[Rfam]
RNA sequence: AAUCCCUGUGAUGAUUAUUAUGAUUAAAAAUGUUAAAAGUAGUGACUGAUAUCUUCUUGAUUAGAAACUAUCAGCUCUGAGGGAUU
Numbered sequence: 001a002a003u004c005c006c007u008g009u010g011a012u013g014a015u016u017a018u019u020a021u022g023a024u025u026a027a028a029a030a031u032g033u034u035a036a037a038a039g040u041a042g043u044g045a046c047u048g049a050u051a052u053c054u055u056c057u058u059g060a061u062u063a064g065a066a067a068c069u070a071u072c073a074g075c076u077c078u079g080a081g082g083g084a085u086u
Base pairs, nucleotide, nucleotide: 001086002085003084004083005082006081
A member of the RNA family "Small nucleolar RNA R21" from Brassica oleracea, 86 nucleotides long. It scores 77 bits against the family's covariance model. Pairs were carried over by alignment from the consensus structure, which was predicted with PFOLD. The family has 6 seed sequences and 472 matches in Rfam 15.1. On this family, see Barneche et al., J Mol Biol 2001: "Identification of 66 box C/D snoRNAs in Arabidopsis thaliana: extensive gene duplications generated multiple isoforms predicting new ribosomal RNA 2'-O-methylation sites".